TPP riboswitch aptamer (THI element): a 95-nucleotide RNA sequence from Sphingobacterium spiritivorum. On this family, see Rodionov et al., J Biol Chem 2002: "Comparative genomics of thiamin biosynthesis in procaryotes. New genes and regulatory mechanisms". Taxonomically the source falls in Sphingobacterium spiritivorum (Bacteria, Pseudomonadati, Bacteroidota, Sphingobacteriia).
RNA sequence: GUAAUACUUUAGGGGUGUCUGCGAAAGCAGGCUGAGAAUUACCCUUUGAACCUGAUCUAGUUCAUACUAGCGUAGGGAAAAGUAGAUGACUGACC
Numbered sequence: 001g002u003a004a005u006a007c008u009u010u011a012g013g014g015g016u017g018u019c020u021g022c023g024a025a026a027g028c029a030g031g032c033u034g035a036g037a038a039u040u041a042c043c044c045u046u047u048g049a050a051c052c053u054g055a056u057c058u059a060g061u062u063c064a065u066a067c068u069a070g071c072g073u074a075g076g077g078a079a080a081a082g083u084a085g086a087u088g089a090c091u092g093a094c095c
Stems, first nucleotide, its partner, number of pairs: 006083005011045004017032005051076004057070004